[Rfam]
RNA sequence: GGUCAUGAGCGCCAGCGCACAGCCCCGGCUUGCUGGCCGGCAACCCUCCUCGCGGUGGGGUGCCCCGGGUGAGGACCGGGCCGGGCGGGAUCCACGCCCCGGCAAGCGCGAGCA
Numbered sequence: 001g002g003u004c005a006u007g008a009g010c011g012c013c014a015g016c017g018c019a020c021a022g023c024c025c026c027g028g029c030u031u032g033c034u035g036g037c038c039g040g041c042a043a044c045c046c047u048c049c050u051c052g053c054g055g056u057g058g059g060g061u062g063c064c065c066c067g068g069g070u071g072a073g074g075a076c077c078g079g080g081c082c083g084g085g086c087g088g089g090a091u092c093c094a095c096g097c098c099c100c101g102g103c104a105a106g107c108g109c110g111a112g113c114a
Stems, first nucleotide, its partner, number of pairs: 001077004009038001011037006021030002039064003044060003048055002080103006088095001

The family of this 114-nucleotide sequence from Phycicoccus elongatus is "SAM (S-adenosyl methionine) riboswitch aptamer".
Taxonomically the source falls in Phycicoccus elongatus (Bacteria, Bacillati, Actinomycetota, Actinomycetes).
For this family Rfam cites "The aptamer core of SAM-IV riboswitches mimics the ligand-binding site of SAM-I riboswitches" (Weinberg et al., RNA, 2008).